RNA anti-toxin A: an 88-nucleotide RNA from Listeria monocytogenes. For this family Rfam cites "Abundance of type I toxin-antitoxin systems in bacteria: searches for new candidates and discovery of novel families" (Fozo et al., Nucleic Acids Res, 2010). It scores 59 bits against the family's covariance model. Taxonomically the source falls in Listeria monocytogenes (Bacteria, Bacillati, Bacillota, Bacilli). Gene Ontology terms of the family: negative regulation of translation and mRNA binding. By type it is an antitoxin RNA.

RNA sequence: CUAUAUAAAUGAAAAGAGAGCCAUGCGUCAACAUGACUCUCUCGCAAACACCAUUUAAGAUGGUGACAGCCUUUUAUAUGAUUUAUUU
Number, nucleotide and partner (000 for none) at each position: 001c000002u000003a000004u000005a000006u000007a000008a000009a000010u000011g000012a000013a000014a000015a000016g000017a000018g000019a000020g000021c000022c035023a034024u033025g032026c000027g000028u000029c000030a000031a000032c025033a024034u023035g022036a000037c000038u000039c000040u000041c000042u000043c000044g000045c000046a000047a000048a000049c000050a064051c063052c062053a061054u060055u059056u000057a000058a000059g055060a054061u053062g052063g051064u050065g000066a000067c000068a000069g000070c000071c000072u000073u000074u000075u000076a000077u000078a000079u000080g000081a000082u000083u000084u000085a000086u000087u000088u000